The family of this 92-nucleotide RNA sequence from Alisovirus socal22 is "PhotoRC-II RNA". The source organism's lineage runs through Viruses, Duplodnaviria, Pantevenvirales, Alisovirus and Alisovirus socal22. The match comes from Rfam's covariance-model search (76 bits).
RNA sequence: UAACAAACAACACCCCGCAAACCAAGACCUCUAGGGUGUAUAAACUACGUCUUUCAUACCUCGUCUUAGGGUGACGAGGAAUAGUAACUCCA
Numbered sequence: 001u002a003a004c005a006a007a008c009a010a011c012a013c014c015c016c017g018c019a020a021a022c023c024a025a026g027a028c029c030u031c032u033a034g035g036g037u038g039u040a041u042a043a044a045c046u047a048c049g050u051c052u053u054u055c056a057u058a059c060c061u062c063g064u065c066u067u068a069g070g071g072u073g074a075c076g077a078g079g080a081a082u083a084g085u086a087a088c089u090c091c092a
Base pairs, nucleotide, nucleotide: 011038012037013036014035015034017032024053025052026051027050028049059079060078061077062076063075064074065073